[Rfam]
RNA sequence: GAGAAGACUCUGUAAAGCUCAGGAGGGAUAGCGCCAUCAUAAUCACAUUUUGUCAUCAAUCUUUUUGGCGCUGUCCAUCCUGAGUUUCAUUGGCUCUUCUU
Numbered sequence: 001g002a003g004a005a006g007a008c009u010c011u012g013u014a015a016a017g018c019u020c021a022g023g024a025g026g027g028a029u030a031g032c033g034c035c036a037u038c039a040u041a042a043u044c045a046c047a048u049u050u051u052g053u054c055a056u057c058a059a060u061c062u063u064u065u066u067g068g069c070g071c072u073g074u075c076c077a078u079c080c081u082g083a084g085u086u087u088c089a090u091u092g093g094c095u096c097u098u099c100u101u
Stems, first nucleotide, its partner, number of pairs: 010092001016086009026076010
RNA: MIR390 microRNA precursor family